[Rfam]
RNA sequence: AAAAUCAAGGGGGUGUGGGGGAACAUCCCAUGCCUCUUUAAAGGAGGGUGUUCAGAUUGCGAUAGCAAUCGUCGAAGGGAAC
Dot-bracket structure: ..............(((.((((...)))).))).....................(((((......)))))............
Numbered sequence: 001a002a003a004a005u006c007a008a009g010g011g012g013g014u015g016u017g018g019g020g021g022a023a024c025a026u027c028c029c030a031u032g033c034c035u036c037u038u039u040a041a042a043g044g045a046g047g048g049u050g051u052u053c054a055g056a057u058u059g060c061g062a063u064a065g066c067a068a069u070c071g072u073c074g075a076a077g078g079g080a081a082c
Stems, first nucleotide, its partner, number of pairs: 015033003019029004055070005

Clostridiales-2 RNA: an 82-nucleotide RNA sequence from Anaeromicrobium sediminis. The family's consensus secondary structure is taken from published work. Taxonomically the source falls in Anaeromicrobium (Bacteria, Bacillati, Bacillota, Peptostreptococcales). The family's RNA type in Rfam is small RNA. A search with the family's covariance model found it, with a score of 62 bits.